Shown here is a 75-nucleotide RNA, a member of the family "RAGATH-18 RNA". It is annotated as a small RNA.
[Rfam]
RNA sequence: CUUGCGGAGAGUAAAAGAAAAUGUAAGUAGUAUUUAGAGUUAUCUGAUACGAAAGCAUGCUCGAUGAAGCAAGAA
Numbered sequence: 001c002u003u004g005c006g007g008a009g010a011g012u013a014a015a016a017g018a019a020a021a022u023g024u025a026a027g028u029a030g031u032a033u034u035u036a037g038a039g040u041u042a043u044c045u046g047a048u049a050c051g052a053a054a055g056c057a058u059g060c061u062c063g064a065u066g067a068a069g070c071a072a073g074a075a
Base pairs, nucleotide, nucleotide: 001073002072003071004070005069009062010061011060012059013058022057023056024055030050031049032048035046036045